[Rfam]
RNA sequence: GAGCCCGGAGGUUACCACCCGACAGCGCGUUGCGCCCUCGGGUGUUUUUCUG
Numbered sequence: 001g002a003g004c005c006c007g008g009a010g011g012u013u014a015c016c017a018c019c020c021g022a023c024a025g026c027g028c029g030u031u032g033c034g035c036c037c038u039c040g041g042g043u044g045u046u047u048u049u050c051u052g
Stems, first nucleotide, its partner, number of pairs: 016044007025035004